[Rfam]
RNA sequence: UCAGGUCUUUUUGCGGUCUGGGCUUGCUGUAAAUGAUUCCCCAGGAAGCCCUUACCCCAAAAAGCAUCUG
Numbered sequence: 001u002c003a004g005g006u007c008u009u010u011u012u013g014c015g016g017u018c019u020g021g022g023c024u025u026g027c028u029g030u031a032a033a034u035g036a037u038u039c040c041c042c043a044g045g046a047a048g049c050c051c052u053u054a055c056c057c058c059a060a061a062a063a064g065c066a067u068c069u070g
Base pairs, nucleotide, nucleotide: 007064008063009062010061011060012059013058015056016055017054020051021050022049023048025046027044028043
mir-129 microRNA precursor family: a 70-nucleotide RNA sequence from Mola mola. For this family Rfam cites "Identification of tissue-specific microRNAs from mouse" (Lagos-Quintana et al., Curr Biol, 2002). It scores 80 bits against the family's covariance model. The family's consensus secondary structure was predicted with RNAalifold. Lineage of the source: Eukaryota > Actinopterygii > Actinopteri > Tetraodontiformes > Mola.